mir-3492 microRNA precursor family: a 78-nucleotide RNA sequence from Schistosoma margrebowiei. The match comes from Rfam's covariance-model search (52 bits). The base pairs follow the family's consensus structure, which was predicted with RNAalifold.
RNA sequence: AGCUUCUUGAAUCCGUGUCGAGAUUUCGUCAGGCACCAGGUCAUCAAUACUGAUGAGACCCCAAAGAUAAGUCGGGUG
Numbered sequence: 001a002g003c004u005u006c007u008u009g010a011a012u013c014c015g016u017g018u019c020g021a022g023a024u025u026u027c028g029u030c031a032g033g034c035a036c037c038a039g040g041u042c043a044u045c046a047a048u049a050c051u052g053a054u055g056a057g058a059c060c061c062c063a064a065a066g067a068u069a070a071g072u073c074g075g076g077u078g
Base pairs, nucleotide, nucleotide: 002077003076004075005074008071011068012067013066016063017062020061022059024058025057026056027055028054029053030052